[Rfam]
RNA sequence: GCUCCCCGCAGACAAUUUACUGCCGCCUCCUCGGGGUGGCCCCCUGCUCCGUUCACCGGGAAGGUGUAAUAAAUCGCCUGCGGGGAGG
Numbered sequence: 001g002c003u004c005c006c007c008g009c010a011g012a013c014a015a016u017u018u019a020c021u022g023c024c025g026c027c028u029c030c031u032c033g034g035g036g037u038g039g040c041c042c043c044c045u046g047c048u049c050c051g052u053u054c055a056c057c058g059g060g061a062a063g064g065u066g067u068a069a070u071a072a073a074u075c076g077c078c079u080g081c082g083g084g085g086a087g088g
Stems, first nucleotide, its partner, number of pairs: 002087010013076001015074005021068003026064003030060003035057005
Rfam assigns this 88-nucleotide sequence from Anas platyrhynchos to the family "mir-1460 microRNA precursor family". Its family is annotated with RISC complex and miRNA-mediated post-transcriptional gene silencing in the Gene Ontology.